The family of this 76-nucleotide RNA from Papilio machaon is "mir-971 microRNA precursor family". A search with the family's covariance model found it, with a score of 69 bits. Its family is annotated with RISC complex and miRNA-mediated post-transcriptional gene silencing in the Gene Ontology. The base pairs follow the family's consensus structure, which was predicted with RNAalifold. Taxonomically the source falls in Papilio (Eukaryota, Mandibulata, Endopterygota, Glossata).
RNA sequence: UGUUCGGUUCACUCUAAGUAUGAACGCCAAGCAUAUAGCACAAAGUUUGGUGUUCUACCUUACAGUGAAUUGCGCC
Numbered sequence: 001u002g003u004u005c006g007g008u009u010c011a012c013u014c015u016a017a018g019u020a021u022g023a024a025c026g027c028c029a030a031g032c033a034u035a036u037a038g039c040a041c042a043a044a045g046u047u048u049g050g051u052g053u054u055c056u057a058c059c060u061u062a063c064a065g066u067g068a069a070u071u072g073c074g075c076c
Stems, first nucleotide, its partner, number of pairs: 006071008015062003025052008